[Rfam]
RNA sequence: ACUGGAAGCUGCUGGGACCAGUCGCGGGCAAAAGACAUGUGUUUUGUCCACUGUUGCAGUCUUCCUAGAGUAAGUGGAGGUCUCUGUCUGCUUUAGGAGAGCAAACUAAACCAGAUCGUUCCCCUCCAUACACG
Numbered sequence: 001a002c003u004g005g006a007a008g009c010u011g012c013u014g015g016g017a018c019c020a021g022u023c024g025c026g027g028g029c030a031a032a033a034g035a036c037a038u039g040u041g042u043u044u045u046g047u048c049c050a051c052u053g054u055u056g057c058a059g060u061c062u063u064c065c066u067a068g069a070g071u072a073a074g075u076g077g078a079g080g081u082c083u084c085u086g087u088c089u090g091c092u093u094u095a096g097g098a099g100a101g102c103a104a105a106c107u108a109a110a111c112c113a114g115a116u117c118g119u120u121c122c123c124c125u126c127c128a129u130a131c132a133c134g
Base pairs, nucleotide, nucleotide: 004065005064006063008060009059010058011057012056024051026049027048028047029046034043035042036041076127077126078125079124080123084118086116087115088114090112092110093109094108095107096106
RNA: Small Cajal body specific RNA 3
Organism: Brachypteracias leptosomus